[Rfam]
RNA sequence: ACGCUAUCCGCUAACCGGUCUAGCCGUAAACGGAAGGUUUCCUGCACUAACAUGGGUGAAGCACCCAAUUAUGGUGAGGCG
Numbered sequence: 001a002c003g004c005u006a007u008c009c010g011c012u013a014a015c016c017g018g019u020c021u022a023g024c025c026g027u028a029a030a031c032g033g034a035a036g037g038u039u040u041c042c043u044g045c046a047c048u049a050a051c052a053u054g055g056g057u058g059a060a061g062c063a064c065c066c067a068a069u070u071a072u073g074g075u076g077a078g079g080c081g
Stems, first nucleotide, its partner, number of pairs: 002081003007034004016026004036042002045076004053067006